Record summary:
The record is a 69-nucleotide RNA from Jaculus jaculus, which matches "Small nucleolar RNA SNORD77" in Rfam. U77 belongs to the C/D family of snoRNAs. It is predicted to guide 2'O-ribose methylation of large 28S rRNA subunit at position A1521.

RNA sequence: AUACAAUGAUGGUUGCAUAGUUCAGCAGAUAAAAUUAUGAAGAGAAUUUAUCAUUUGUCUGAUGUGUCU
Dot-bracket structure: ((((.(((((..((((........)))).....)))))....(((.(.....)))).......))))..
The family is grouped with related families in Rfam's "SNORD77 clan". It is annotated as a C/D-box small nucleolar RNA. Its family is annotated with nucleolus and RNA processing in the Gene Ontology.